The record is an 80-nucleotide RNA sequence from Panicum virgatum, which matches "Small nucleolar RNA snoR8a" in Rfam. The base pairs follow the family's consensus structure, which was predicted with WAR. The family's RNA type in Rfam is C/D-box small nucleolar RNA. Rfam 15.1 lists 956 matches to the family in 245 species. The match comes from Rfam's covariance-model search (58 bits). Lineage of the source: Eukaryota > Tracheophyta > Magnoliopsida > Paniceae > Panicum sect. Hiantes.
[Rfam]
Nucleotides: 080
Stems, first nucleotide, its partner, number of pairs: 003080002006078002
Number, partner (000 for none) and nucleotide at each position: 001000g002000c003080g004079g005000g006078u007077g008000c009000g010000g011000c012000g013000a014000u015000u016000a017000u018000a019000a020000a021000a022000a023000c024000a025000u026000u027000c028000c029000u030000c031000g032000u033000c034000c035000u036000g037000a038000u039000c040000c041000c042000c043000c044000g045000u046000g047000a048000u049000c050000g051000a052000c053000u054000c055000c056000u057000a058000u059000a060000c061000a062000c063000c064000c065000a066000u067000a068000g069000a070000a071000u072000c073000u074000g075000a076000g077007c078006a079004u080003u